[Rfam]
RNA sequence: AUUGUGUAACUGUUUUUCUUAAAUCUAAAGUUAACGUUGUUUAUCAGCUUCUUCUCUUGAACAUCCAACGAGAUUGGAGUUAAAUCAUAGCACUAUAUGU
Numbered sequence: 001a002u003u004g005u006g007u008a009a010c011u012g013u014u015u016u017u018c019u020u021a022a023a024u025c026u027a028a029a030g031u032u033a034a035c036g037u038u039g040u041u042u043a044u045c046a047g048c049u050u051c052u053u054c055u056c057u058u059g060a061a062c063a064u065c066c067a068a069c070g071a072g073a074u075u076g077g078a079g080u081u082a083a084a085u086c087a088u089a090g091c092a093c094u095a096u097a098u099g100u
Base pairs, nucleotide, nucleotide: 033094036091037090038089039088046081047080048079049078050077051076053073054072055071056070
This 100-nucleotide RNA from Nicotiana tabacum belongs to the Rfam family "Small nucleolar RNA snoR97".
A reference for the family is Marker et al. (2002), "Experimental RNomics: identification of 140 candidates for small non-messenger RNAs in the plant Arabidopsis thaliana", Curr Biol.
Pairs were carried over by alignment from the consensus structure, which was predicted with WAR.
By type it is an H/ACA-box small nucleolar RNA.
It scores 49 bits against the family's covariance model.
The organism belongs to Nicotiana, within Eukaryota.